Rfam assigns this 374-nucleotide RNA from Frateuria aurantia to the family "Bacterial RNase P class A".
Rfam's curators write: Ribonuclease P (RNase P) is a ubiquitous endoribonuclease, found in archaea, bacteria and eukarya as well as chloroplasts and mitochondria. Its best characterised activity is the generation of mature 5'-ends of tRNAs by cleaving the 5'-leader elements of precursor-tRNAs. Cellular RNase Ps are ribonucleoproteins. RNA from bacterial RNase Ps retains its catalytic activity in the absence of the protein subunit, i.e. it is a ribozyme.
Taxonomically the source falls in Frateuria aurantia (Bacteria, Pseudomonadati, Pseudomonadota, Gammaproteobacteria).
Its family is annotated with ribonuclease P activity, dimeric ribonuclease P complex and tRNA processing in the Gene Ontology.

RNA sequence: GGAGUCGGCCGGACAGUCGCGUGUGCCUUCGGGUACUCGAGGAAAGUCCGGGCUCCACAGGGCAGGGUGCCAGGUAACGCCUGGGCGGUGCAAGCCGACGGCCAGUGCAACAGAGAGCAGACCGCCGAUGGCCGCCAUCCUCGUGAUGACGGAUCAGGCAAGGGUGAAAGGGUGCGGUAAGAGCGCACCGCGCGCGGGGACAACGUCGCGUGGCACGGUAAACCCCACCCGGAGCAAGACCGAAUAGGGGAACGAUAACGCGGCCCGCGUUGUUCCCGGGUAGGUUGCUGGAAUCUGGCGGUGACGCCAGGUCGAGAUGAAUGACUGUCGCGUCGCAAGACGUACAGAACCCGGCUUACAGGCCGGCUCCGCAC
Numbered sequence: 001g002g003a004g005u006c007g008g009c010c011g012g013a014c015a016g017u018c019g020c021g022u023g024u025g026c027c028u029u030c031g032g033g034u035a036c037u038c039g040a041g042g043a044a045a046g047u048c049c050g051g052g053c054u055c056c057a058c059a060g061g062g063c064a065g066g067g068u069g070c071c072a073g074g075u076a077a078c079g080c081c082u083g084g085g086c087g088g089u090g091c092a093a094g095c096c097g098a099c100g101g102c103c104a105g106u107g108c109a110a111c112a113g114a115g116a117g118c119a120g121a122c123c124g125c126c127g128a129u130g131g132c133c134g135c136c137a138u139c140c141u142c143g144u145g146a147u148g149a150c151g152g153a154u155c156a157g158g159c160a161a162g163g164g165u166g167a168a169a170g171g172g173u174g175c176g177g178u179a180a181g182a183g184c185g186c187a188c189c190g191c192g193c194g195c196g197g198g199g200a201c202a203a204c205g206u207c208g209c210g211u212g213g214c215a216c217g218g219u220a221a222a223c224c225c226c227a228c229c230c231g232g233a234g235c236a237a238g239a240c241c242g243a244a245u246a247g248g249g250g251a252a253c254g255a256u257a258a259c260g261c262g263g264c265c266c267g268c269g270u271u272g273u274u275c276c277c278g279g280g281u282a283g284g285u286u287g288c289u290g291g292a293a294u295c296u297g298g299c300g301g302u303g304a305c306g307c308c309a310g311g312u313c314g315a316g317a318u319g320a321a322u323g324a325c326u327g328u329c330g331c332g333u334c335g336c337a338a339g340a341c342g343u344a345c346a347g348a349a350c351c352c353g354g355c356u357u358a359c360a361g362g363c364c365g366g367c368u369c370c371g372c373a374c
Base pairs, nucleotide, nucleotide: 001370002369003368004367005366006365007364008363009362010361011359012329013328014327015326016325017324018323020039021038023036024035025034026033027032044357045356046355048354049353050352051351052350053234054233055232056231060266061265062264063263065230066229067228068227069226070084071083072082073081074080085099086097087096088095089094100225101224105223106222107219108218122163123162124159125158126157129156130155131154133152171189172188173187174186175185176184190214191212192211193210194209195208196206199204238286239285240284241283248277249276250275251274252273253272257271258270259269260268261267293312294311295310296309297308298307299306300305